[Rfam]
RNA sequence: GGGUUUUCCUUUGUGCUUGAUCUAACCAUGUGGUUGCAGACUCAGACUAAUACAUGGUUCUGUCAAGCACCAUGGAAGGUCU
Numbered sequence: 001g002g003g004u005u006u007u008c009c010u011u012u013g014u015g016c017u018u019g020a021u022c023u024a025a026c027c028a029u030g031u032g033g034u035u036g037c038a039g040a041c042u043c044a045g046a047c048u049a050a051u052a053c054a055u056g057g058u059u060c061u062g063u064c065a066a067g068c069a070c071c072a073u074g075g076a077a078g079g080u081c082u
Stems, first nucleotide, its partner, number of pairs: 001082009013070007024059008
Source information
A member of the RNA family "mir-218 microRNA precursor family" from Danio rerio, 82 nucleotides long. Its family is annotated with miRNA-mediated post-transcriptional gene silencing and RISC complex in the Gene Ontology. For this family Rfam cites "The developmental miRNA profiles of zebrafish as determined by small RNA cloning" (Chen et al., Genes Dev, 2005). It is one of the family's seed sequences.